[Rfam]
RNA sequence: AAAAUGCACUAGGGGUGUGUAUACUGAGAUGAGGUUUAACCUCGAACCCUUUGAACCUGAACUAGUUAAAACUAGCGUAGGAAAGUGUUGCUAAUAUAAA
Numbered sequence: 001a002a003a004a005u006g007c008a009c010u011a012g013g014g015g016u017g018u019g020u021a022u023a024c025u026g027a028g029a030u031g032a033g034g035u036u037u038a039a040c041c042u043c044g045a046a047c048c049c050u051u052u053g054a055a056c057c058u059g060a061a062c063u064a065g066u067u068a069a070a071a072c073u074a075g076c077g078u079a080g081g082a083a084a085g086u087g088u089u090g091c092u093a094a095u096a097u098a099a100a
Stems, first nucleotide, its partner, number of pairs: 006088005011050004016044001017024002031043005056081004062075004
A member of the RNA family "TPP riboswitch aptamer (THI element)" from Staphylococcus haemolyticus, 100 nucleotides long. The match comes from Rfam's covariance-model search (78 bits). NCBI's taxonomy places the organism under Bacteria, Bacillati, Bacillota, Caryophanales, Staphylococcus haemolyticus.